[Rfam]
RNA sequence: GAUUCCCUUCCUACAAAUCAAACUAUAAUAUCAAAGAAGAAACCCCCCAGGGAUCUG
Numbered sequence: 001g002a003u004u005c006c007c008u009u010c011c012u013a014c015a016a017a018u019c020a021a022a023c024u025a026u027a028a029u030a031u032c033a034a035a036g037a038a039g040a041a042a043c044c045c046c047c048c049a050g051g052g053a054u055c056u057g
Stems, first nucleotide, its partner, number of pairs: 001055006
A member of the RNA family "Class I RNA from Dictyostelium" from Cavenderia fasciculata, 57 nucleotides long. Rfam's curators put it in the seed alignment. The literature on the family includes a 2004 paper in Nucleic Acids Res by Aspegren et al., "Novel non-coding RNAs in Dictyostelium discoideum and their expression during development". The organism belongs to Cavenderia, within Eukaryota.